This 104-nucleotide sequence from Oryza glumipatula belongs to the Rfam family "Small nucleolar RNA R44/J54/Z268 family".
RNA sequence: UUGGCAUAUGAUGAAAAGCAGGACAAGAUCACCUGCAGCAUUCCUGAUCCAAAUCAGGGACGCAAUAGCAUGAUGACUCUGUCUAGGGGAAUCUCUGAUGCUAA
Numbered sequence: 001u002u003g004g005c006a007u008a009u010g011a012u013g014a015a016a017a018g019c020a021g022g023a024c025a026a027g028a029u030c031a032c033c034u035g036c037a038g039c040a041u042u043c044c045u046g047a048u049c050c051a052a053a054u055c056a057g058g059g060a061c062g063c064a065a066u067a068g069c070a071u072g073a074u075g076a077c078u079c080u081g082u083c084u085a086g087g088g089g090a091a092u093c094u095c096u097g098a099u100g101c102u103a104a
Stems, first nucleotide, its partner, number of pairs: 002103005
It scores 61 bits against the family's covariance model. Clan: SNORD74 clan.